[Rfam]
A member of the RNA family "Iron response element I" from Chrysochloris asiatica, 35 nucleotides long.
Rfam 15.1 lists 6,829 matches to the family in 599 species.
Rfam classes the family as a cis-regulatory element.
Its family is annotated with response to iron ion in the Gene Ontology.
The organism belongs to Chrysochloris, within Eukaryota.
RNA sequence: CUGUGUUUUGCGUCAACAGGGUUUGGACGGAACAG
Numbered sequence: 001c002u003g004u005g006u007u008u009u010g011c012g013u014c015a016a017c018a019g020g021g022u023u024u025g026g027a028c029g030g031a032a033c034a035g
Base pairs, nucleotide, nucleotide: 001035002034003033004032006031007030008029010028013026014025015024016023017021